[Rfam]
Shown here is a 66-nucleotide RNA sequence from Frateuria aurantia, a member of the family "int-alpA RNA". The family's consensus secondary structure is taken from published work. The source organism's lineage runs through Bacteria, Pseudomonadota, Gammaproteobacteria, Lysobacterales and Frateuria aurantia. The match comes from Rfam's covariance-model search (48 bits).
RNA sequence: ACCGCGCCUAGGCUGAUCCCCGAACGUCUGGACACCCUGCCAGGCUGGCGCGGUACCUUUUCAGGG
Numbered sequence: 001a002c003c004g005c006g007c008c009u010a011g012g013c014u015g016a017u018c019c020c021c022g023a024a025c026g027u028c029u030g031g032a033c034a035c036c037c038u039g040c041c042a043g044g045c046u047g048g049c050g051c052g053g054u055a056c057c058u059u060u061u062c063a064g065g066g
Stems, first nucleotide, its partner, number of pairs: 001054008011021002027044005035066005